[Rfam]
The record is an 83-nucleotide RNA from Pogonomyrmex barbatus, which matches "mir-2765 microRNA precursor family" in Rfam.
RNA sequence: AAUGUGCCGAGGCUUGGUAACUCCACCACCGUUGGCGGCAUUCGACGGCCAAUGGGGUACGAGUUUCCUUCUCUCGGCGCGAA
Numbered sequence: 001a002a003u004g005u006g007c008c009g010a011g012g013c014u015u016g017g018u019a020a021c022u023c024c025a026c027c028a029c030c031g032u033u034g035g036c037g038g039c040a041u042u043c044g045a046c047g048g049c050c051a052a053u054g055g056g057g058u059a060c061g062a063g064u065u066u067c068c069u070u071c072u073c074u075c076g077g078c079g080c081g082a083a
Base pairs, nucleotide, nucleotide: 003081004080005079006078007077008076009075010074011073012072016068017067019065020064021063022062023061027057029055030054031053032052033051034050035049036048

The match comes from Rfam's covariance-model search (85 bits).